Nucleotides: 202
Stems, first nucleotide, its partner, number of pairs: 009095004017030005037090007045082004051076007096146006116140011
Number, partner (000 for none) and nucleotide at each position: 001000u002000c003000a004000g005000a006000u007000c008000c009095a010094g011093g012092c013000a014000u015000a016000a017030c018029a019028u020027c021026c022000a023000u024000c025000a026021g027020g028019g029018u030017g031000c032000a033000u034000u035000g036000c037090g038089g039088c040087a041086g042085a043084u044000a045082u046081u047080c048079u049000g050000c051076u052075c053074u054073c055072c056071u057070g058000a059000a060000a061000g062000u063000c064000g065000a066000u067000c068000u069000g070057c071056g072055g073054g074053a075052g076051g077000c078000g079048a080047g081046g082045g083000g084043a085042u086041u087040u088039g089038c090037c091000a092012g093011u094010c095009u096146g097145a098144a099143a100142g101141a102000u103000g104000a105000c106000g107000c108000g109000u110000a111000u112000a113000a114000c115000u116140a117139a118138a119137a120136a121135g122134g123133c124132c125131g126130c127000a128000u129000u130126g131125c132124g133123g134122c135121c136120u137119u138118u139117u140116u141101u142100c143099u144098u145097u146096c147000a148000a149000g150000u151000a152000u153000g154000g155000a156000a157000u158000a159000c160000c161000c162000a163000c164000c165000g166000u167000a168000a169000a170000a171000u172000c173000a174000c175000g176000c177000u178000a179000c180000c181000u182000c183000u184000u185000u186000u187000c188000a189000g190000c191000u192000g193000a194000a195000u196000g197000g198000a199000u200000a201000a202000c